[Rfam]
RNA sequence: GAGUUUCUGUUUGCAGCAAGCUUAAGCCGUUAGGUGUAGGCGCAGCGAAAGCGAGUCCGAACAGGGCGCUGAGUUGCAGGCAGAAGACCCGAAACCGAGUGAUCUAGCCAUGGCCAGGUUGAAGGUGGGGUAACACCCACUGGAGGACCGAACCCACGCCUGUUGAAAAAGUCGGGGAUGAGCUGUGGCUAGGGGUGAAAGGCCAAUCAAACUCGGAAAUAGCUGGUU
Dot-bracket structure: ....(((((((((((((..((((..(((....)))..))))...((....))..((((.....)))).....)))))))))))))..((.(...((((((...((((((((((((.((((...((((((......))))))....))))...(((.((.((........)).)))))..).))))))))))).(((.....)))......))))))......).))..
A member of the RNA family "Bacterial large subunit ribosomal RNA" from Acetobacteraceae bacterium AT-5844, 228 nucleotides of a longer RNA. A search with the family's covariance model found it, with a score of 2723 bits. The organism belongs to Acetobacteraceae, within Bacteria.